[Rfam]
RNA sequence: AGUGGGCUAUGAACGAGACGUUUAUUUCUCCUUUUGAUGGUUCUACUUGUUAGAAACGCCUAUAUUGCUGUGUGUAGUCCUUGCCUAUCACGCCCAUGAUAGGCUUUUUUUUUC
Numbered sequence: 001a002g003u004g005g006g007c008u009a010u011g012a013a014c015g016a017g018a019c020g021u022u023u024a025u026u027u028c029u030c031c032u033u034u035u036g037a038u039g040g041u042u043c044u045a046c047u048u049g050u051u052a053g054a055a056a057c058g059c060c061u062a063u064a065u066u067g068c069u070g071u072g073u074g075u076a077g078u079c080c081u082u083g084c085c086u087a088u089c090a091c092g093c094c095c096a097u098g099a100u101a102g103g104c105u106u107u108u109u110u111u112u113u114c
Stems, first nucleotide, its partner, number of pairs: 002025004037048001039047002066074003083104007
RNA: RprA RNA